[Rfam]
RNA sequence: UUGCGAUGAAGCAGGGAUUGGGCCAAGAUACAAUGUCUGCCGAGCUGUAAAGGGUUAGUACGUACCGCAUCUUGGUCGUAGGCAGUGUUACCGUGAGGCGGUGCUGACCGAAAGAAACGUACUUCA
Numbered sequence: 001u002u003g004c005g006a007u008g009a010a011g012c013a014g015g016g017a018u019u020g021g022g023c024c025a026a027g028a029u030a031c032a033a034u035g036u037c038u039g040c041c042g043a044g045c046u047g048u049a050a051a052g053g054g055u056u057a058g059u060a061c062g063u064a065c066c067g068c069a070u071c072u073u074g075g076u077c078g079u080a081g082g083c084a085g086u087g088u089u090a091c092c093g094u095g096a097g098g099c100g101g102u103g104c105u106g107a108c109c110g111a112a113a114g115a116a117a118c119g120u121a122c123u124u125c126a
Base pairs, nucleotide, nucleotide: 001047003045004044011040012039013038014037015036017034018033019032020031023075024074025073026072058122059121060120081109082108083106084105085104086103087102088101089100
Shown here is a 126-nucleotide sequence, a member of the family "drum RNA". The sequence is in the family's curated seed alignment. Rfam classes the family as a small RNA. About the family: Firmicutes, Bacteroidetes (1 example), Proteobacteria (2 examples), Spirochaetes (2 examples).